[Rfam]
RNA sequence: AAAGUGUUUCCUGAUACAGGGUGGAGCAUUCAAGAGAACAGCCCCAGUUCCCUUGAAUGCUCCACCCUGUAUCAGGAAACACUUUGA
Numbered sequence: 001a002a003a004g005u006g007u008u009u010c011c012u013g014a015u016a017c018a019g020g021g022u023g024g025a026g027c028a029u030u031c032a033a034g035a036g037a038a039c040a041g042c043c044c045c046a047g048u049u050c051c052c053u054u055g056a057a058u059g060c061u062c063c064a065c066c067c068u069g070u071a072u073c074a075g076g077a078a079a080c081a082c083u084u085u086g087a
Base pairs, nucleotide, nucleotide: 001085002084003083004082005081006080007079008078009077010076011075013073014072015071016070017069018068019067020066021065022064023063024062025061026060027059028058029057030056031055032054033053034052
A member of the RNA family "mir-5697 microRNA precursor family" from Erpornis zantholeuca, 87 nucleotides long. Rfam links the family to the GO terms miRNA-mediated post-transcriptional gene silencing and RISC complex. The source organism's lineage runs through Eukaryota, Vertebrata, Dipnotetrapodomorpha, Amniota and Erpornis.